Small nucleolar RNA SNORD77: a 67-nucleotide sequence from Urocitellus parryii. Its family is annotated with nucleolus and RNA processing in the Gene Ontology. Clan: SNORD77 clan. On this family, see Tycowski et al., Curr Biol 2004: "Guide RNAs with 5' caps and novel box C/D snoRNA-like domains for modification of snRNAs in metazoa". Rfam describes the family as follows. U77 belongs to the C/D family of snoRNAs. It is predicted to guide 2'O-ribose methylation of large 28S rRNA subunit at position A1521. The C/D snoRNAs U44, U47, U74, U75, U76, U78, U79, U80 and U81 share the same host gene as U77 (non-coding). The family's consensus secondary structure was predicted with RNAalifold.
[Rfam]
RNA sequence: AUGAUAUGAUUGUUGCGUAGUUCAUCAGAUUAAAUCAUGAAGACAUUUUUCAUUAUCUGAUGUAUCU
Numbered sequence: 001a002u003g004a005u006a007u008g009a010u011u012g013u014u015g016c017g018u019a020g021u022u023c024a025u026c027a028g029a030u031u032a033a034a035u036c037a038u039g040a041a042g043a044c045a046u047u048u049u050u051c052a053u054u055a056u057c058u059g060a061u062g063u064a065u066c067u
Base pairs, nucleotide, nucleotide: 001065002064003063006038007037008036009035010034013028014027015026043054045053046052